[Rfam]
RNA sequence: GUGCAAUGAUGCAUUGUAUCAACCCAUCAUUCUGAUAAGAUAGGUAUGUGGAAAACUUAAUGACUGAGCACA
Numbered sequence: 001g002u003g004c005a006a007u008g009a010u011g012c013a014u015u016g017u018a019u020c021a022a023c024c025c026a027u028c029a030u031u032c033u034g035a036u037a038a039g040a041u042a043g044g045u046a047u048g049u050g051g052a053a054a055a056c057u058u059a060a061u062g063a064c065u066g067a068g069c070a071c072a
Stems, first nucleotide, its partner, number of pairs: 001071004
The family of this 72-nucleotide RNA sequence from Bos taurus is "Small nucleolar RNA SNORD63". snoRNA U63 is found in both humans and mice. On this family, see Galardi et al., Mol Cell Biol 2002: "Purified box C/D snoRNPs are able to reproduce site-specific 2'-O-methylation of target RNA in vitro". The organism belongs to Bos, within Eukaryota. It is one of the family's seed sequences.